[Rfam]
RNA: Guanidine-II riboswitch aptamer (mini-ykkC)
RNA sequence: GCCCAGGGACGACCCUGGGCGCCGUCAGACUCGCUGCGGGACGACCCGC
Numbered sequence: 001g002c003c004c005a006g007g008g009a010c011g012a013c014c015c016u017g018g019g020c021g022c023c024g025u026c027a028g029a030c031u032c033g034c035u036g037c038g039g040g041a042c043g044a045c046c047c048g049c
Base pairs, nucleotide, nucleotide: 001020002019003018004017005016006015007014008013036049037048038047039046040045